[Rfam]
Shown here is a 167-nucleotide RNA from Arthrobacter sp. CAU 1506, a member of the family "c-di-AMP riboswitch aptamer (ydaO/yuaA leader)". NCBI's taxonomy places the organism under Bacteria, Actinomycetota, Micrococcales, Micrococcaceae, Arthrobacter.

RNA sequence: CGAGUUUGUUCGCUAGACAUCUGGCAGAGGCGGGGGACCCACUUUCCGGGCCCCUCUUGGGGCCCUUGGGGUUAAGUCGCGUGGUUGGUGCCUGCCGCACUGCCGCACGACCGGGUGACUCCCAUCCGAAUCCGACAGCUCACCUCGUAAGCAUUGGGAGAGGUUAC
Dot-bracket structure: ...........(((...(.(......).)((((((....((.........................))(((.....(((............................)))..((((.......))))...))).........)))))).)))...............